The family of this 128-nucleotide RNA sequence from Deminuibacter soli is "SAM riboswitch aptamer (S box leader)". From the family's description: The SAM riboswitch is found upstream of a number of genes which code for proteins involved in methionine or cysteine biosynthesis in Gram-positive bacteria. The match comes from Rfam's covariance-model search (86 bits). The family's consensus secondary structure is taken from published work.
[Rfam]
Nucleotides: 128
Stems, first nucleotide, its partner, number of pairs: 002127007013043005021032003028100002044094004049090002051086004098120001103117005
Number, partner (000 for none) and nucleotide at each position: 001000c002127a003126c004125u005124u006123a007122u008121c009000a010000a011000g012000a013043a014042a015041g016040g017039c018000a019000g020000a021032g022031g023030g024000a025000a026000a027000c028100g029099g030023c031022c032021c033000g034000a035000u036000g037000a038000a039017g040016c041015c042014u043013u044094g045093g046092c047091a048000a049090c050089c051086c052085u053084c054083c055000a056000u057000c058000a059000c060000g061000u062000a063000c064000a065000c066000g067000u068000a069000a070000c071000a072000g073000c074000g075000u076000a077000c078000c079000g080000g081000a082000c083054g084053g085052a086051g087000a088000a089050g090049g091047u092046g093045c094044c095000a096000a097000c098120u099029c100028c101000u102000a103117c104116c105115c106114c107113a108000c109000c110000a111000g112000u113107u114106g115105g116104g117103g118000a119000g120098a121008g122007a123006u124005a125004a126003g127002u128000c